This 85-nucleotide sequence from Desulfosporosinus sp. I2 belongs to the Rfam family "c-di-GMP-I-GGC riboswitch aptamer".
RNA sequence: UGCGACAAAGGCAAACCUAACGAAAGUUAGGGACGCAAAGCUACGGGUCUUCCACGUAAGGGUGAUGAUCGCCGGGUUUCCGAAC
Numbered sequence: 001u002g003c004g005a006c007a008a009a010g011g012c013a014a015a016c017c018u019a020a021c022g023a024a025a026g027u028u029a030g031g032g033a034c035g036c037a038a039a040g041c042u043a044c045g046g047g048u049c050u051u052c053c054a055c056g057u058a059a060g061g062g063u064g065a066u067g068a069u070c071g072c073c074g075g076g077u078u079u080c081c082g083a084a085c
Stems, first nucleotide, its partner, number of pairs: 003082002011036002016031006034071001039078004044074003047069003

A search with the family's covariance model found it, with a score of 70 bits. Taxonomically the source falls in Desulfosporosinus (Bacteria, Bacillota, Eubacteriales, Desulfitobacteriaceae). The family has 40 seed sequences and 1,298 matches in Rfam 15.1.